[Rfam]
RNA sequence: GCCGGGCAUUGUGGCGCAUGCCUGUAAUCCAGCUGCUUGGAGGCUAGAGAUGUUGAAUGGCUUGAGGUGUGGAUUCCUGAUGGCGGUCGUGCUAUGUCGAUCGGGUGUCCGCGCUAAGUCGGGCGUCAAUAUGGUGCCUUAAGAGGAGUCUCGAGUCACCAGGUUGGUUAAAGAGGAGCGUACCGGCCCAGGGUGGAAACACAGCAGGCAAAAGCUCCCGCGUUCGACAGUAGUGGGAUAGCACCUGUGAAUAGACGGCCGUCAACAGCCAUGCCAAGAUAGUCGAACUCAUCUCUCUU
Numbered sequence: 001g002c003c004g005g006g007c008a009u010u011g012u013g014g015c016g017c018a019u020g021c022c023u024g025u026a027a028u029c030c031a032g033c034u035g036c037u038u039g040g041a042g043g044c045u046a047g048a049g050a051u052g053u054u055g056a057a058u059g060g061c062u063u064g065a066g067g068u069g070u071g072g073a074u075u076c077c078u079g080a081u082g083g084c085g086g087u088c089g090u091g092c093u094a095u096g097u098c099g100a101u102c103g104g105g106u107g108u109c110c111g112c113g114c115u116a117a118g119u120c121g122g123g124c125g126u127c128a129a130u131a132u133g134g135u136g137c138c139u140u141a142a143g144a145g146g147a148g149u150c151u152c153g154a155g156u157c158a159c160c161a162g163g164u165u166g167g168u169u170a171a172a173g174a175g176g177a178g179c180g181u182a183c184c185g186g187c188c189c190a191g192g193g194u195g196g197a198a199a200c201a202c203a204g205c206a207g208g209c210a211a212a213a214g215c216u217c218c219c220g221c222g223u224u225c226g227a228c229a230g231u232a233g234u235g236g237g238a239u240a241g242c243a244c245c246u247g248u249g250a251a252u253a254g255a256c257g258g259c260c261g262u263c264a265a266c267a268g269c270c271a272u273g274c275c276a277a278g279a280u281a282g283u284c285g286a287a288c289u290c291a292u293c294u295c296u297c298u299u
Stems, first nucleotide, its partner, number of pairs: 001044003004023006028041003046296007058285005066275007077268003081264009092254004097249001102247007109237002112235005118228009127166004132161005138155003142151003168172001175218005186209003193202003
Metazoan signal recognition particle RNA: a 299-nucleotide sequence from Nematostella vectensis. The base pairs follow the family's consensus structure, which is taken from published work. About the family: The signal recognition particle (SRP) is a universally conserved ribonucleoprotein. Clan: SRP clan. It is one of the family's seed sequences. Lineage of the source: Eukaryota > Opisthokonta > Hexacorallia > Actiniaria > Nematostella. Rfam links the family to the GO terms SRP-dependent cotranslational protein targeting to membrane, signal sequence recognition and signal recognition particle, endoplasmic reticulum targeting.